The family of this 64-nucleotide RNA sequence from Chlorogloea sp. CCALA 695 is "Cyanobacterial functional RNA 1". Taxonomically the source falls in Chlorogloea (Bacteria, Bacillati, Cyanophyceae, Chroococcales).
RNA sequence: UCGGAAAAAAAAAUUUUCCGUUCACUCCUCACACCACACUCCGCCCAAUUAAUAUUGGGCGGUU
Numbered sequence: 001u002c003g004g005a006a007a008a009a010a011a012a013a014u015u016u017u018c019c020g021u022u023c024a025c026u027c028c029u030c031a032c033a034c035c036a037c038a039c040u041c042c043g044c045c046c047a048a049u050u051a052a053u054a055u056u057g058g059g060c061g062g063u064u
Stems, first nucleotide, its partner, number of pairs: 002020007042061007